The family of this 78-nucleotide sequence from Nothocercus julius is "Small nucleolar RNA SNORD69". The match comes from Rfam's covariance-model search (52 bits). Rfam's curators write: snoRNA HBII-210 belongs to the C/D family of snoRNAs. NCBI's taxonomy places the organism under Eukaryota, Sauropsida, Archelosauria, Archosauria, Nothocercus. The literature on the family includes a 2001 paper in EMBO J by Huttenhofer et al., "RNomics: an experimental approach that identifies 201 candidates for novel, small, non-messenger RNAs in mouse". By type it is a C/D-box small nucleolar RNA.
[Rfam]
RNA sequence: UACACAAAGCAUAUGAUGAGAAAGCAUAAAAGCCGACUCCAUGUGAAGCAUAUUCAAUCCAACCCUGAGCUUUGUGUC
Numbered sequence: 001u002a003c004a005c006a007a008a009g010c011a012u013a014u015g016a017u018g019a020g021a022a023a024g025c026a027u028a029a030a031a032g033c034c035g036a037c038u039c040c041a042u043g044u045g046a047a048g049c050a051u052a053u054u055c056a057a058u059c060c061a062a063c064c065c066u067g068a069g070c071u072u073u074g075u076g077u078c
Base pairs, nucleotide, nucleotide: 002077003076004075005074006073007072008071009070010069